[Rfam]
A member of the RNA family "Metazoan signal recognition particle RNA" from Acaulospora morrowiae, 300 nucleotides long. Lineage of the source: Eukaryota > Opisthokonta > Fungi > Acaulosporaceae > Acaulospora. The match comes from Rfam's covariance-model search (151 bits). The literature on the family includes a 2002 paper in Curr Opin Struct Biol by Wild et al., "Towards the structure of the mammalian signal recognition particle". Rfam describes the family as follows. The signal recognition particle (SRP) is a universally conserved ribonucleoprotein. It is involved in the co-translational targeting of proteins to membranes. The base pairs follow the family's consensus structure, which is taken from published work.
RNA sequence: GUCGGUCAAUGUGGCGAUUGACUGUAGCUCUGCUUCUGGAGGACAGGAUGAUAGGAUAAUCCUCAUUUGGAUUUACAAUUCUUAACUCCGCAUGUUGAGAGUAGUGUCUCACUUGAACUUGAUGUGAACAUUCUGACUUGAAUGUAAAUUUGGGUCAGGAGGUUCUUAAAUAGUGGGGGAGUAAGCCCGAGGCUGGAAACAGAGCAGGGAAAACUCGCAGCAUUAAGUGGCAGUGAGAUAGCACACUUGAGUGAUUGGUAGUUGGAAUUGCUAAAUGAGCUGAUUGGACUUCCCGUCCGU
Numbered sequence: 001g002u003c004g005g006u007c008a009a010u011g012u013g014g015c016g017a018u019u020g021a022c023u024g025u026a027g028c029u030c031u032g033c034u035u036c037u038g039g040a041g042g043a044c045a046g047g048a049u050g051a052u053a054g055g056a057u058a059a060u061c062c063u064c065a066u067u068u069g070g071a072u073u074u075a076c077a078a079u080u081c082u083u084a085a086c087u088c089c090g091c092a093u094g095u096u097g098a099g100a101g102u103a104g105u106g107u108c109u110c111a112c113u114u115g116a117a118c119u120u121g122a123u124g125u126g127a128a129c130a131u132u133c134u135g136a137c138u139u140g141a142a143u144g145u146a147a148a149u150u151u152g153g154g155u156c157a158g159g160a161g162g163u164u165c166u167u168a169a170a171u172a173g174u175g176g177g178g179g180a181g182u183a184a185g186c187c188c189g190a191g192g193c194u195g196g197a198a199a200c201a202g203a204g205c206a207g208g209g210a211a212a213a214c215u216c217g218c219a220g221c222a223u224u225a226a227g228u229g230g231c232a233g234u235g236a237g238a239u240a241g242c243a244c245a246c247u248u249g250a251g252u253g254a255u256u257g258g259u260a261g262u263u264g265g266a267a268u269u270g271c272u273a274a275a276u277g278a279g280c281u282g283a284u285u286g287g288a289c290u291u292c293c294c295g296u297c298c299g300u
Base pairs, nucleotide, nucleotide: 001044002043003042004023005022006021007020008019009018010017028041029040030039046298047297048296049295050294053291054290055289057286058285059284060283061282062279063278064277065276066275067274068273069272070271076270077269078268079267080266081265082264088258089257090256091253092252093251095249099248100247101246102245104244105243106242107241108237109236113233114232115231117228118227119226120225121224122223123222124221125220126165127164128163129162131160132159133158134157135156136155137154138153139152140151141150142149143148166172173218174217175216176215177214186209187208188207193202194201195200